[Rfam]
RNA sequence: GCAGGUGAAUGCAACGUCAAGCGAUGGGCGUUGCGCUCCAUAUUGUCUUACUUCCUUUUUUGAAUUAUUGCAUAGCACAUAUAAUUCGUACGACGCCGGCUAUCCGCCGGCUUUU
Numbered sequence: 001g002c003a004g005g006u007g008a009a010u011g012c013a014a015c016g017u018c019a020a021g022c023g024a025u026g027g028g029c030g031u032u033g034c035g036c037u038c039c040a041u042a043u044u045g046u047c048u049u050a051c052u053u054c055c056u057u058u059u060u061u062g063a064a065u066u067a068u069u070g071c072a073u074a075g076c077a078c079a080u081a082u083a084a085u086u087c088g089u090a091c092g093a094c095g096c097c098g099g100c101u102a103u104c105c106g107c108c109g110g111c112u113u114u115u
Stems, first nucleotide, its partner, number of pairs: 001046004007038002010035009062087006069077003095111006
Rfam assigns this 115-nucleotide RNA sequence from Pantoea vagans to the family "Fumarate/nitrate reductase regulator sRNA". For this family Rfam cites "Reprogramming of anaerobic metabolism by the FnrS small RNA" (Durand and Storz, Mol Microbiol, 2010). The organism belongs to Pantoea, within Bacteria.